[Rfam]
Background
The record is a 189-nucleotide RNA from Prevotella nigrescens, which matches "Bacteroidales-1 6S-Bacteroidales RNA suggested" in Rfam. About the family: Bacteroidales-1 was first reported in a comparative genomics-based approach of genome and metagenome sequences from Weinberg et al. 2010 In a high-resolution transcriptome map study of Bacteroides thetaiotaomicron, Ryan et al. 2020 report this sRNA as 6S RNA homologue of Bacteroides, in the study they obtain evidence of small product RNAs (pRNAs) related to 6S function.

RNA sequence: AGUCGUAUCGAUUCGAUUGGGAUAGUCAUCAAAUAAAUCUGAAAACCGAGAAGACUUCUCUUGACAAUGGCGGGCCACAUAAAACGCAUUUCAGCGACUAAACCUUAGGGUCGGUGGAUUACAAAAGCAGAGAGUUCUCUUAUCAUAGAUACUCGGACUUUUCAUCACAUCAUCGAUGCGACUUUCUCA
Number, nucleotide and partner (000 for none) at each position: 001a000002g000003u000004c000005g000006u000007a000008u000009c000010g000011a000012u000013u000014c000015g000016a000017u000018u000019g000020g000021g000022a000023u000024a000025g000026u000027c000028a000029u000030c000031a000032a000033a000034u000035a000036a000037a000038u000039c000040u000041g000042a000043a000044a000045a000046c000047c000048g000049a000050g000051a000052a000053g000054a135055c134056u133057u000058c132059u131060c130061u000062u129063g128064a000065c000066a000067a000068u123069g122070g000071c000072g000073g000074g000075c117076c116077a115078c114079a000080u000081a000082a000083a000084a000085c000086g000087c000088a000089u000090u000091u000092c000093a000094g000095c000096g000097a000098c000099u000100a000101a000102a111103c110104c109105u000106u000107a000108g000109g104110g103111u102112c000113g000114g078115u077116g076117g075118a000119u000120u000121a000122c069123a068124a000125a000126a000127g000128c063129a062130g060131a059132g058133a056134g055135u054136u000137c000138u000139c000140u000141u000142a000143u000144c000145a000146u000147a000148g000149a000150u000151a000152c000153u000154c000155g000156g000157a000158c000159u000160u000161u000162u000163c000164a000165u000166c000167a000168c000169a000170u000171c000172a000173u000174c000175g000176a000177u000178g000179c000180g000181a000182c000183u000184u000185u000186c000187u000188c000189a000
Taxonomically the source falls in Prevotella nigrescens (Bacteria, Bacteroidota, Bacteroidia, Prevotella).